[Rfam]
Rfam assigns this 64-nucleotide RNA sequence to the family "Cyano-1 RNA". The family's consensus secondary structure is taken from published work. The family's RNA type in Rfam is small RNA.

RNA sequence: GAGUGUGUAGGAGAAAGUGAUUUUUCGGUGGAAACAUGGAAACACUUGAUUAAUCAUUUUGAAA
Numbered sequence: 001g002a003g004u005g006u007g008u009a010g011g012a013g014a015a016a017g018u019g020a021u022u023u024u025u026c027g028g029u030g031g032a033a034a035c036a037u038g039g040a041a042a043c044a045c046u047u048g049a050u051u052a053a054u055c056a057u058u059u060u061g062a063a064a
Stems, first nucleotide, its partner, number of pairs: 014060008025049003028045003